[Rfam]
RNA: TD-2 RNA
RNA sequence: ACCGCCAUGGACGGCGGUGGUUCCAAACAGAAGCGAUGUUUUAAAGCAAGACUGUUUGCAAAGCUUUAAAACUCGCAGUUUAGUUUUUGCCACGGACGGCAAAAACUAAACCGUU
Numbered sequence: 001a002c003c004g005c006c007a008u009g010g011a012c013g014g015c016g017g018u019g020g021u022u023c024c025a026a027a028c029a030g031a032a033g034c035g036a037u038g039u040u041u042u043a044a045a046g047c048a049a050g051a052c053u054g055u056u057u058g059c060a061a062a063g064c065u066u067u068a069a070a071a072c073u074c075g076c077a078g079u080u081u082a083g084u085u086u087u088u089g090c091c092a093c094g095g096a097c098g099g100c101a102a103a104a105a106c107u108a109a110a111c112c113g114u115u
Base pairs, nucleotide, nucleotide: 001018002017003016004015005014006013034075035074036073038072039071040070041069042068043067044066045065046064047063078111079110080109081108082107083106084105085104086103087102088101089100090099091098